[Rfam]
This 67-nucleotide RNA sequence from Corynebacterium falsenii belongs to the Rfam family "L31-Corynebacteriaceae ribosomal protein leader". Lineage of the source: Bacteria > Bacillati > Actinomycetes > Corynebacteriaceae > Corynebacterium falsenii. The base pairs follow the family's consensus structure, which is taken from published work.
RNA sequence: ACUCAGGCACGACCACCUGCGCAACGCUAGCCGCUGUGGACCGACCUGAUGUACACAACCUAAGGGA
Numbered sequence: 001a002c003u004c005a006g007g008c009a010c011g012a013c014c015a016c017c018u019g020c021g022c023a024a025c026g027c028u029a030g031c032c033g034c035u036g037u038g039g040a041c042c043g044a045c046c047u048g049a050u051g052u053a054c055a056c057a058a059c060c061u062a063a064g065g066g067a
Stems, first nucleotide, its partner, number of pairs: 001052002004048004013039004019027002